[Rfam]
The record is a 120-nucleotide RNA sequence from Sporomusa ovata, which matches "Molybdenum/Tungsten riboswitch aptamer (Moco RNA motif)" in Rfam.
RNA sequence: AAAUAUGAGAUUCUUCAAAGCCAGCAGGUCUAAAACUGAUGUCAUGACCUGCUGGCCGUUAGGGUAUACCAGGAAACAGGUAUAUCUGCCAUUGCGCAAAGAAGAACAUCGCUAGUAAAG
Numbered sequence: 001a002a003a004u005a006u007g008a009g010a011u012u013c014u015u016c017a018a019a020g021c022c023a024g025c026a027g028g029u030c031u032a033a034a035a036c037u038g039a040u041g042u043c044a045u046g047a048c049c050u051g052c053u054g055g056c057c058g059u060u061a062g063g064g065u066a067u068a069c070c071a072g073g074a075a076a077c078a079g080g081u082a083u084a085u086c087u088g089c090c091a092u093u094g095c096g097c098a099a100a101g102a103a104g105a106a107c108a109u110c111g112c113u114a115g116u117a118a119a120g
Base pairs, nucleotide, nucleotide: 006111011106012105013104014103015102016101020056021055022054023053024052025051026050027049028048029047030046035042036041062087063086064085065084066083067082068081069080070079072077088097089096